[Rfam]
RNA sequence: GAGAUAUGAGGAGAUGAAGCUCUCCUGAUAAACUUUAUCAAACUGCUAAAUGCUAAUAGCUUCUACGACCUG
Number, nucleotide and partner (000 for none) at each position: 001g000002a000003g000004a000005u000006a000007u000008g000009a000010g025011g024012a023013g022014a000015u000016g063017a062018a061019g060020c059021u058022c013023u012024c011025c010026u000027g000028a000029u000030a000031a000032a000033c000034u000035u000036u000037a000038u000039c000040a000041a000042a000043c000044u000045g053046c052047u000048a000049a000050a000051u000052g046053c045054u000055a000056a000057u000058a021059g020060c019061u018062u017063c016064u000065a000066c000067g000068a000069c000070c000071u000072g000